[Rfam]
RNA sequence: CUUGGGAAAUGAUGCCAAGAUUCAAACAGAUUUAUCAGAGGCGCCAGCUCUGCCUUUGAUUAAUCUUUUUGCACGUCGUCAGUCUGAUCCCAAA
Numbered sequence: 001c002u003u004g005g006g007a008a009a010u011g012a013u014g015c016c017a018a019g020a021u022u023c024a025a026a027c028a029g030a031u032u033u034a035u036c037a038g039a040g041g042c043g044c045c046a047g048c049u050c051u052g053c054c055u056u057u058g059a060u061u062a063a064u065c066u067u068u069u070u071g072c073a074c075g076u077c078g079u080c081a082g083u084c085u086g087a088u089c090c091c092a093a094a
Base pairs, nucleotide, nucleotide: 002093003092004091005090006089007088

A member of the RNA family "Small nucleolar RNA Z122" from Turnera subulata, 94 nucleotides long. NCBI's taxonomy places the organism under Eukaryota, Magnoliopsida, fabids, Passifloraceae, Turnera. On this family, see Chen et al., Nucleic Acids Res 2003: "The high diversity of snoRNAs in plants: identification and comparative study of 120 snoRNA genes from Oryza sativa". The family's consensus secondary structure was predicted with PFOLD. It is annotated as a C/D-box small nucleolar RNA.